[Rfam]
RNA: SAH (S-adenosyl-L-homocysteine) riboswitch aptamer
RNA sequence: CCUGCCGAGGGGCGCUGCGACCGGAUCCCACGAGGCCCGGCCAGGCUCGGUAAGGUGGCUUUGUAACAACGGCGCCCGGCUAGA
Numbered sequence: 001c002c003u004g005c006c007g008a009g010g011g012g013c014g015c016u017g018c019g020a021c022c023g024g025a026u027c028c029c030a031c032g033a034g035g036c037c038c039g040g041c042c043a044g045g046c047u048c049g050g051u052a053a054g055g056u057g058g059c060u061u062u063g064u065a066a067c068a069a070c071g072g073c074g075c076c077c078g079g080c081u082a083g084a
Stems, first nucleotide, its partner, number of pairs: 003052006021040004026035001